[Rfam]
Record summary
A member of the RNA family "Small nucleolar RNA SNORA73 family" from Phyllostomus discolor, 204 nucleotides long. Pairs were carried over by alignment from the consensus structure, which is taken from published work. The match comes from Rfam's covariance-model search (154 bits). Clan: snR30-U17 clan.

RNA sequence: CAAGCAUGGAUACCCCGGGAGGUCACUCUCCCUGGGCUCUGUCCAGGUGGUGUAGGGGAGCACAGGGCUCAGCCCUGUGAGGCACAGUCCCUUUCCACAACGCUGGAGAGGAAGCCAGGCCCUGAGUCUGCGCCUGCACAUUCCCACAGCUUCUCGGAGUCCUAUGGUCAGUGACUGAGGCAACAAACCACACAGGAAACAUCU
Numbered sequence: 001c002a003a004g005c006a007u008g009g010a011u012a013c014c015c016c017g018g019g020a021g022g023u024c025a026c027u028c029u030c031c032c033u034g035g036g037c038u039c040u041g042u043c044c045a046g047g048u049g050g051u052g053u054a055g056g057g058g059a060g061c062a063c064a065g066g067g068c069u070c071a072g073c074c075c076u077g078u079g080a081g082g083c084a085c086a087g088u089c090c091c092u093u094u095c096c097a098c099a100a101c102g103c104u105g106g107a108g109a110g111g112a113a114g115c116c117a118g119g120c121c122c123u124g125a126g127u128c129u130g131c132g133c134c135u136g137c138a139c140a141u142u143c144c145c146a147c148a149g150c151u152u153c154u155c156g157g158a159g160u161c162c163u164a165u166g167g168u169c170a171g172u173g174a175c176u177g178a179g180g181c182a183a184c185a186a187a188c189c190a191c192a193c194a195g196g197a198a199a200c201a202u203c204u
Stems, first nucleotide, its partner, number of pairs: 001106001003104003007100001008044005014036003018029004047098004056091004060085001063082001065078001133196004152180004159169001161167002